[Rfam]
RNA sequence: CUCUUAUCAAGAGUGGUGGAGGGACUGGCCCGAUGAAACCCGGCAACCGGCAUCAAUCAUCUGAUGCGCCCGGUGCCAAAUCCUGCAAGGGAAACCUUGAAAGAUGAGAG
Numbered sequence: 001c002u003c004u005u006a007u008c009a010a011g012a013g014u015g016g017u018g019g020a021g022g023g024a025c026u027g028g029c030c031c032g033a034u035g036a037a038a039c040c041c042g043g044c045a046a047c048c049g050g051c052a053u054c055a056a057u058c059a060u061c062u063g064a065u066g067c068g069c070c071c072g073g074u075g076c077c078a079a080a081u082c083c084u085g086c087a088a089g090g091g092a093a094a095c096c097u098u099g100a101a102a103g104a105u106g107a108g109a110g
Stems, first nucleotide, its partner, number of pairs: 001110008013041001015040003021031003025085001027083002042077004047073002049070003081102001086099005
A member of the RNA family "SAM riboswitch aptamer (S box leader)" from Thermoanaerobacterium sp. RBIITD, 110 nucleotides long.
The base pairs follow the family's consensus structure, which is taken from published work.
Taxonomically the source falls in Thermoanaerobacterium (Bacteria, Bacillota, Clostridia, Thermoanaerobacteraceae).
A search with the family's covariance model found it, with a score of 91 bits.